[Rfam]
RNA sequence: CAUGAUUAGCCUAGCUAGGAUUGUUUAGAGGGUAGUCGCAGUCGCCCCAACUCCGACUUGCAAAAAUUUUGUUUUGUAAGUAGGGUGAGAAACAACUUUUGUUGGAAACUUUAAUCUUUUUAAGAGAUUGGAGAACUGU
Numbered sequence: 001c002a003u004g005a006u007u008a009g010c011c012u013a014g015c016u017a018g019g020a021u022u023g024u025u026u027a028g029a030g031g032g033u034a035g036u037c038g039c040a041g042u043c044g045c046c047c048c049a050a051c052u053c054c055g056a057c058u059u060g061c062a063a064a065a066a067u068u069u070u071g072u073u074u075u076g077u078a079a080g081u082a083g084g085g086u087g088a089g090a091a092a093c094a095a096c097u098u099u100u101g102u103u104g105g106a107a108a109c110u111u112u113a114a115u116c117u118u119u120u121u122a123a124g125a126g127a128u129u130g131g132a133g134a135a136c137u138g139u
Base pairs, nucleotide, nucleotide: 006018007017008016009015010014030047031046032045033044038139039138040137041136051089052088053087056081057080058079059078060077061076062075063074064073065072093104094103095102096101109133110132111131112130113129114128115127116126117125